[Rfam]
RNA sequence: ACAGUCUGAAAAUCACUUGGGGUCUUCUGUGGCCCCUGGUGCCCUAACUGUGCUGACAGCAGUGGGAGCAUUAAACUCAUUACCCACGAUAAAGUGUGGGUGGUGAAACCCAUGUUCCUGUAUCC
Numbered sequence: 001a002c003a004g005u006c007u008g009a010a011a012a013u014c015a016c017u018u019g020g021g022g023u024c025u026u027c028u029g030u031g032g033c034c035c036c037u038g039g040u041g042c043c044c045u046a047a048c049u050g051u052g053c054u055g056a057c058a059g060c061a062g063u064g065g066g067a068g069c070a071u072u073a074a075a076c077u078c079a080u081u082a083c084c085c086a087c088g089a090u091a092a093a094g095u096g097u098g099g100g101u102g103g104u105g106a107a108a109c110c111c112a113u114g115u116u117c118c119u120g121u122a123u124c125c
Base pairs, nucleotide, nucleotide: 006050008048010045014041015040016039021034022033023032024031065118067116068115069114070113071112077106078105079104080103081102085096086095087094
Shown here is a 125-nucleotide RNA from Bucco capensis, a member of the family "Small nucleolar RNA ACA64". Rfam 15.1 lists 9,537 matches to the family in 620 species. Lineage of the source: Eukaryota > Craniata > Gnathostomata > Aves > Bucco. Gene Ontology terms of the family: RNA processing and nucleolus.